Rfam assigns this 186-nucleotide RNA sequence to the family "Lysine riboswitch aptamer". Riboswitches are metabolite binding domains within certain messenger RNAs that serve as precision sensors for their corresponding targets. Allosteric rearrangement of mRNA structure is mediated by ligand binding, and this results in modulation of gene expression. This family includes riboswitches that sense lysine in a number of genes involved in lysine metabolism, including lysC.
[Rfam]
RNA sequence: AAGCGCAGUUUAGCGUUUGUGAACAGUAACACUCUGUAAGUGCAACUAAGCAAAUGAACAGGAUAGAAAGGCCACAAGUGCUGAAAACCUUAUUUCUCUGUUAGAGAAUGAUAGUUUGUGCAAAGUUAAGACUAAAGCUUCCCACAUUAAAGAUGUUUCUAACAUCUUUAAAUGAAAAAUGAUUCA
Numbered sequence: 001a002a003g004c005g006c007a008g009u010u011u012a013g014c015g016u017u018u019g020u021g022a023a024c025a026g027u028a029a030c031a032c033u034c035u036g037u038a039a040g041u042g043c044a045a046c047u048a049a050g051c052a053a054a055u056g057a058a059c060a061g062g063a064u065a066g067a068a069a070g071g072c073c074a075c076a077a078g079u080g081c082u083g084a085a086a087a088c089c090u091u092a093u094u095u096c097u098c099u100g101u102u103a104g105a106g107a108a109u110g111a112u113a114g115u116u117u118g119u120g121c122a123a124a125g126u127u128a129a130g131a132c133u134a135a136a137g138c139u140u141c142c143c144a145c146a147u148u149a150a151a152g153a154u155g156u157u158u159c160u161a162a163c164a165u166c167u168u169u170a171a172a173u174g175a176a177a178a179a180u181g182a183u184u185c186a
Base pairs, nucleotide, nucleotide: 008180009179010178011177013081014080015079016078017077018076019075020074021073031064033062034061035060036059037058085117086116087115088114090111091110092109093108094107095106118145119144120143123140124139125138126137127136147171148170149169150168151167152166153165154164155163